[Rfam]
RNA: RNase MRP
RNA sequence: GAGCAUUCAGAAGACUUGCUAUCUGGGCUACGUACUGAGAACCCGCUUCUCCCUUCUCGCCCAGGGGAAAGUCCCCGGACCCGUGGCAGAAAGUGCCCCUGGUUAAAGCCAGUGUCGACUCGCGCUUCACCGCUAACGAGCUAAGACGUUCACGGGAACCGAGCUCGGUGAUCGCUUGUCGACUUUGUCAGCGUCGGUAGUAAUGCAAGUGUGCAUCCAACAGCGCCUAACAGAACGGGGCUCAUUCUCCGAAUGCU
Numbered sequence: 001g002a003g004c005a006u007u008c009a010g011a012a013g014a015c016u017u018g019c020u021a022u023c024u025g026g027g028c029u030a031c032g033u034a035c036u037g038a039g040a041a042c043c044c045g046c047u048u049c050u051c052c053c054u055u056c057u058c059g060c061c062c063a064g065g066g067g068a069a070a071g072u073c074c075c076c077g078g079a080c081c082c083g084u085g086g087c088a089g090a091a092a093g094u095g096c097c098c099c100u101g102g103u104u105a106a107a108g109c110c111a112g113u114g115u116c117g118a119c120u121c122g123c124g125c126u127u128c129a130c131c132g133c134u135a136a137c138g139a140g141c142u143a144a145g146a147c148g149u150u151c152a153c154g155g156g157a158a159c160c161g162a163g164c165u166c167g168g169u170g171a172u173c174g175c176u177u178g179u180c181g182a183c184u185u186u187g188u189c190a191g192c193g194u195c196g197g198u199a200g201u202a203a204u205g206c207a208a209g210u211g212u213g214c215a216u217c218c219a220a221c222a223g224c225g226c227c228u229a230a231c232a233g234a235a236c237g238g239g240g241c242u243c244a245u246u247c248u249c250c251g252a253a254u255g256c257u
Stems, first nucleotide, its partner, number of pairs: 002257007010249002014210006022065007037051005070242002073240004085097004099112005115182003121178002124175002127171004138166004148159004213226002216223001
Dot-bracket structure: .(((((((.((..((((((..(((((((........(((((.....))))).......)))))))....[[.[[[[........((((.....)))).(((((....)))))..(((...((.((.((((.......((((......((((....))))...)))).))))..)).)).)))......................))))))..((.(......).))..........]]]]]].....)).)))))))